[Rfam]
RNA: c-di-GMP-I-GGC riboswitch aptamer
Organism: Rohdeia mirabilis
RNA sequence: ACCGAGAAGGGCAAACCCACCGUGAGGUGGGGACGCAAAGCCACGGGCCCCUGACCGCAAGGGCAUGGGUAGCCGGGUUACCGAAG
Numbered sequence: 001a002c003c004g005a006g007a008a009g010g011g012c013a014a015a016c017c018c019a020c021c022g023u024g025a026g027g028u029g030g031g032g033a034c035g036c037a038a039a040g041c042c043a044c045g046g047g048c049c050c051c052u053g054a055c056c057g058c059a060a061g062g063g064c065a066u067g068g069g070u071a072g073c074c075g076g077g078u079u080a081c082c083g084a085a086g
Stems, first nucleotide, its partner, number of pairs: 003083002011036002016031006034072001039079004044075003047070003